The record is a 102-nucleotide sequence from Viridibacillus arenosi, which matches "Purine riboswitch aptamer" in Rfam.

RNA sequence: AAUAUAAAUAAAUAACGUCGUCGUAUAAUGUCGGGGAUAUGGCCCGAGAGUAUCUACCAAGUUACCUUAAAUAACUUGACUACGAUUAAAAGAAUUGGCUUU
Numbered sequence: 001a002a003u004a005u006a007a008a009u010a011a012a013u014a015a016c017g018u019c020g021u022c023g024u025a026u027a028a029u030g031u032c033g034g035g036g037a038u039a040u041g042g043c044c045c046g047a048g049a050g051u052a053u054c055u056a057c058c059a060a061g062u063u064a065c066c067u068u069a070a071a072u073a074a075c076u077u078g079a080c081u082a083c084g085a086u087u088a089a090a091a092g093a094a095u096u097g098g099c100u101u102u
Stems, first nucleotide, its partner, number of pairs: 018088001020086006029049001031047005058078007

It scores 88 bits against the family's covariance model.